[Rfam]
RNA sequence: AUACUUGUAUAAGUAUGUCCCAUGCAAUAUCUGGGACAUACUUAUACUAACA
Numbered sequence: 001a002u003a004c005u006u007g008u009a010u011a012a013g014u015a016u017g018u019c020c021c022a023u024g025c026a027a028u029a030u031c032u033g034g035g036a037c038a039u040a041c042u043u044a045u046a047c048u049a050a051c052a
Base pairs, nucleotide, nucleotide: 007047008046009045010044011043012042014040015039016038018036019035020034021033
Shown here is a 52-nucleotide RNA from Sorex araneus, a member of the family "mir-1302 microRNA precursor family". The family has 24 seed sequences and 16,160 matches in Rfam 15.1. Pairs were carried over by alignment from the consensus structure, which was predicted with WAR. It is one of the family's seed sequences.